[Rfam]
RNA sequence: GGGGGGAGGGUGGAUCCUGGGCUGUAUCCCUGGCGCCCUGUGCUCCUGGGCCGGUGCUGUUGGAUUCGCGGUCCCGGUCACGCACCGCCUC
Numbered sequence: 001g002g003g004g005g006g007a008g009g010g011u012g013g014a015u016c017c018u019g020g021g022c023u024g025u026a027u028c029c030c031u032g033g034c035g036c037c038c039u040g041u042g043c044u045c046c047u048g049g050g051c052c053g054g055u056g057c058u059g060u061u062g063g064a065u066u067c068g069c070g071g072u073c074c075c076g077g078u079c080a081c082g083c084a085c086c087g088c089c090u091c
Base pairs, nucleotide, nucleotide: 001091002090003089004088006086009083011080012079013078016077017076019074020073021072023070024069025068027064028063030062031059032058033057034056035055036054040052042051043050044049
About this RNA
The record is a 91-nucleotide RNA from Nyctereutes procyonoides, which matches "mir-8799 microRNA precursor family" in Rfam. Pairs were carried over by alignment from the consensus structure, which was predicted with RNAalifold.